This 104-nucleotide RNA from Lentibacillus kapialis belongs to the Rfam family "SAM riboswitch aptamer (S box leader)".
The organism belongs to Lentibacillus, within Bacteria.
Gene Ontology term of the family: regulation of gene expression.
[Rfam]
RNA sequence: UUCUUAUCAAGAGAGGUGGAGGGACUGGCCCGGCGAAGCCUCGGCAGCAGACUUUCUAUAGUACUGUGCCAAUUCCAGAAAGCGUCACGCUUUUAAGAUAAGAG
Numbered sequence: 001u002u003c004u005u006a007u008c009a010a011g012a013g014a015g016g017u018g019g020a021g022g023g024a025c026u027g028g029c030c031c032g033g034c035g036a037a038g039c040c041u042c043g044g045c046a047g048c049a050g051a052c053u054u055u056c057u058a059u060a061g062u063a064c065u066g067u068g069c070c071a072a073u074u075c076c077a078g079a080a081a082g083c084g085u086c087a088c089g090c091u092u093u094u095a096a097g098a099u100a101a102g103a104g
Stems, first nucleotide, its partner, number of pairs: 001104008013042005021031003025078004043070004048066002050062001052061002074096001079093006